A member of the RNA family "mir-92 microRNA precursor family" from Synaphobranchus kaupii, 78 nucleotides long. A search with the family's covariance model found it, with a score of 67 bits. Its family is annotated with miRNA-mediated post-transcriptional gene silencing and RISC complex in the Gene Ontology. A reference for the family is Houbaviy et al. (2003), "Embryonic stem cell-specific MicroRNAs", Dev Cell.
RNA sequence: CGUUCUGUGCAGGUUGGGAUGGGUAGCAAUGCUGUACACUGGUAAGGUAUUGCACUUGUCCCGGCCUGUUCAGGACUC
Numbered sequence: 001c002g003u004u005c006u007g008u009g010c011a012g013g014u015u016g017g018g019a020u021g022g023g024u025a026g027c028a029a030u031g032c033u034g035u036a037c038a039c040u041g042g043u044a045a046g047g048u049a050u051u052g053c054a055c056u057u058g059u060c061c062c063g064g065c066c067u068g069u070u071c072a073g074g075a076c077u078c
Stems, first nucleotide, its partner, number of pairs: 004074003009069006016062005022056003026053008